[Rfam]
The record is a 74-nucleotide RNA sequence from Sphenodon punctatus, which matches "mir-196 microRNA precursor family" in Rfam.
Taxonomically the source falls in Sphenodon (Eukaryota, Deuterostomia, Euteleostomi, Lepidosauria).

RNA sequence: UCCGUGGUUUAGGUAGUUUCAUGUUGUUGGGAUUGGCUUUUAACUCGGCAACAAGAAACUGCCUUAAUUACGUC
Numbered sequence: 001u002c003c004g005u006g007g008u009u010u011a012g013g014u015a016g017u018u019u020c021a022u023g024u025u026g027u028u029g030g031g032a033u034u035g036g037c038u039u040u041u042a043a044c045u046c047g048g049c050a051a052c053a054a055g056a057a058a059c060u061g062c063c064u065u066a067a068u069u070a071c072g073u074c
Stems, first nucleotide, its partner, number of pairs: 003072007011064009022053010